[Rfam]
Small nucleolar RNA SNORD53/SNORD92: an 83-nucleotide RNA from Triplophysa rosa. Rfam 15.1 lists 2,250 matches to the family in 671 species. It scores 62 bits against the family's covariance model. The base pairs follow the family's consensus structure. The organism belongs to Triplophysa, within Eukaryota. On this family, see Kiss-Laszlo et al., Cell 1996: "Site-specific ribose methylation of preribosomal RNA: a novel function for small nucleolar RNAs".
RNA sequence: UCAGAGAUGAUGAUACCCGAGAAUGGUUUCGCUUACAUCGCUGAUUUCAUGUGAUGUCACACUUCUCUUGGCUGUCUGAUUGA
Numbered sequence: 001u002c003a004g005a006g007a008u009g010a011u012g013a014u015a016c017c018c019g020a021g022a023a024u025g026g027u028u029u030c031g032c033u034u035a036c037a038u039c040g041c042u043g044a045u046u047u048c049a050u051g052u053g054a055u056g057u058c059a060c061a062c063u064u065c066u067c068u069u070g071g072c073u074g075u076c077u078g079a080u081u082g083a
Stems, first nucleotide, its partner, number of pairs: 001083004